[Rfam]
RNA sequence: AAGCGAGGACGACCUCCCCCUUCACGGGUCCAGCAUUCGGGACGGCCCGA
Dot-bracket structure: ..(.((((....)))).)..................(((((....)))))
Source information
Rfam assigns this 50-nucleotide RNA from an Alphaproteobacteria bacterium to the family "Guanidine-II riboswitch aptamer (mini-ykkC)". For this family Rfam cites "The Structure of the Guanidine-II Riboswitch" (Huang et al., Cell Chem Biol, 2017). Lineage of the source: Bacteria > Pseudomonadati > Pseudomonadota > Alphaproteobacteria. Rfam links the family to the GO term regulation of gene expression. A search with the family's covariance model found it, with a score of 40 bits.